[Rfam]
RNA sequence: GCGAGAUGCCUUCCGACACUGGAUGAAUGAAGACUUAGAGAACCUCCAUUCUGCCAGGUCAGAAGGCAUCUUGUGUCAUUGGGGCCACCCCACGGAGCGCGACGUCACGAUGCUCAUCGGUGGAUCGAG
Numbered sequence: 001g002c003g004a005g006a007u008g009c010c011u012u013c014c015g016a017c018a019c020u021g022g023a024u025g026a027a028u029g030a031a032g033a034c035u036u037a038g039a040g041a042a043c044c045u046c047c048a049u050u051c052u053g054c055c056a057g058g059u060c061a062g063a064a065g066g067c068a069u070c071u072u073g074u075g076u077c078a079u080u081g082g083g084g085c086c087a088c089c090c091c092a093c094g095g096a097g098c099g100c101g102a103c104g105u106c107a108c109g110a111u112g113c114u115c116a117u118c119g120g121u122g123g124a125u126c127g128a129g
Stems, first nucleotide, its partner, number of pairs: 002073012019057004025051004032044001108127004114123003
Shown here is a 129-nucleotide sequence from Actinospica durhamensis, a member of the family "Actinobacteria sRNA Ms_IGR-7".
By type it is a small RNA.
A reference for the family is Li et al. (2013), "Identification of small RNAs in Mycobacterium smegmatis using heterologous Hfq", RNA.